[Rfam]
tRNA: an 86-nucleotide RNA sequence from Tautonia plasticadhaerens. By type it is a transfer RNA. From the family's description: Transfer RNA (tRNA) molecules are approximately 80 nucleotides in length.
RNA sequence: GCCGAAGUGGCGGAAUUGGCAGACGCGCUAGGUUCAGGUCCUAGUCCGGUUCACCCCGGGUGGAGGUUCGAGUCCUCUCUUCGGCA
Numbered sequence: 001g002c003c004g005a006a007g008u009g010g011c012g013g014a015a016u017u018g019g020c021a022g023a024c025g026c027g028c029u030a031g032g033u034u035c036a037g038g039u040c041c042u043a044g045u046c047c048g049g050u051u052c053a054c055c056c057c058g059g060g061u062g063g064a065g066g067u068u069c070g071a072g073u074c075c076u077c078u079c080u081u082c083g084g085c086a
Stems, first nucleotide, its partner, number of pairs: 001085007010026003028044005062078005
Source information:
Pairs were carried over by alignment from the consensus structure, which is taken from published work.